[Rfam]
RNA: MIR394 microRNA precursor family
RNA sequence: CUAACAGAAUUGUUUUGGCAUUCUGUCCACCUCCACAUCUUAAUUUCUUUUUCUUCUUGUUAACGGAGGUGGGCAUACUGCCAACAGAGCUCUGUUAG
Numbered sequence: 001c002u003a004a005c006a007g008a009a010u011u012g013u014u015u016u017g018g019c020a021u022u023c024u025g026u027c028c029a030c031c032u033c034c035a036c037a038u039c040u041u042a043a044u045u046u047c048u049u050u051u052u053c054u055u056c057u058u059g060u061u062a063a064c065g066g067a068g069g070u071g072g073g074c075a076u077a078c079u080g081c082c083a084a085c086a087g088a089g090c091u092c093u094g095u096u097a098g
Base pairs, nucleotide, nucleotide: 011088015084016083017082018081019080020079024075025074026073027072028071029070030069031068032067033066034065